[Rfam]
RNA sequence: CUCUUAUCCAGAGUGGCGGAGGGACUAGGCCCUGCGAUGCCCGGCAACCAACGGAUCAUUUAUUUGAUACGGAAAGGUGCUAAUUCCUACAGAUCCUUAAACGGGUCUGAAAGAUAAGAG
Numbered sequence: 001c002u003c004u005u006a007u008c009c010a011g012a013g014u015g016g017c018g019g020a021g022g023g024a025c026u027a028g029g030c031c032c033u034g035c036g037a038u039g040c041c042c043g044g045c046a047a048c049c050a051a052c053g054g055a056u057c058a059u060u061u062a063u064u065u066g067a068u069a070c071g072g073a074a075a076g077g078u079g080c081u082a083a084u085u086c087c088u089a090c091a092g093a094u095c096c097u098u099a100a101a102c103g104g105g106u107c108u109g110a111a112a113g114a115u116a117a118g119a120g
Stems, first nucleotide, its partner, number of pairs: 001120008013042001015041003021032003026089004043081004048077002052071002085112001090109006
Dot-bracket structure: ((((((((....(.(((...(((..[[[[)))......))))((((.((..((................))....))))))...(]]]]((((((........))))))..)))))))))

Background
A member of the RNA family "SAM riboswitch aptamer (S box leader)" from Jeotgalibacillus alimentarius, 120 nucleotides long. Taxonomically the source falls in Jeotgalibacillus (Bacteria, Bacillota, Bacilli, Caryophanaceae). The family's consensus secondary structure is taken from published work. Gene Ontology term of the family: regulation of gene expression.